[Rfam]
RNA sequence: UUUGGGUCCAGUCUAAUUCUGCAUCAUGGUUUAUUUAUGUAGUCUCGCUUUUGGACCAGAACAAAGCUCCAAAUCCUUUAUUAUCCUUGUGCUGGGGACACUUGCCAGACCCCAGCACACGAGAAACGUAAAAGAACACUU
Numbered sequence: 001u002u003u004g005g006g007u008c009c010a011g012u013c014u015a016a017u018u019c020u021g022c023a024u025c026a027u028g029g030u031u032u033a034u035u036u037a038u039g040u041a042g043u044c045u046c047g048c049u050u051u052u053g054g055a056c057c058a059g060a061a062c063a064a065a066g067c068u069c070c071a072a073a074u075c076c077u078u079u080a081u082u083a084u085c086c087u088u089g090u091g092c093u094g095g096g097g098a099c100a101c102u103u104g105c106c107a108g109a110c111c112c113c114a115g116c117a118c119a120c121g122a123g124a125a126a127c128g129u130a131a132a133a134g135a136a137c138a139c140u141u
Stems, first nucleotide, its partner, number of pairs: 005057006019042006026035001027033002074135002077132005086123006
RNA: Small nucleolar RNA psi28S-1192
Organism: Drosophila ananassae